RNA sequence: CAACUGCAUUCAGAGUCGGAAUCACACCGACGCCAACCUGCCCCUCCCGGGCAAGGUGGAAGCCUUCUUUUAAGGCAAUGCGGCCGAUGGUCGGCAACGAAGCGGGAGCGG
Numbered sequence: 001c002a003a004c005u006g007c008a009u010u011c012a013g014a015g016u017c018g019g020a021a022u023c024a025c026a027c028c029g030a031c032g033c034c035a036a037c038c039u040g041c042c043c044c045u046c047c048c049g050g051g052c053a054a055g056g057u058g059g060a061a062g063c064c065u066u067c068u069u070u071u072a073a074g075g076c077a078a079u080g081c082g083g084c085c086g087a088u089g090g091u092c093g094g095c096a097a098c099g100a101a102g103c104g105g106g107a108g109c110g111g
Stems, first nucleotide, its partner, number of pairs: 006081005015031005033059002037056003040052003045106003083095004
SAM-I/IV (S-adenosyl methionine) riboswitch aptamer: a 111-nucleotide RNA from Paraburkholderia lacunae. The base pairs follow the family's consensus structure, which is taken from published work. On this family, see Weinberg et al., RNA 2008: "The aptamer core of SAM-IV riboswitches mimics the ligand-binding site of SAM-I riboswitches". NCBI's taxonomy places the organism under Bacteria, Pseudomonadati, Pseudomonadota, Burkholderiaceae, Paraburkholderia.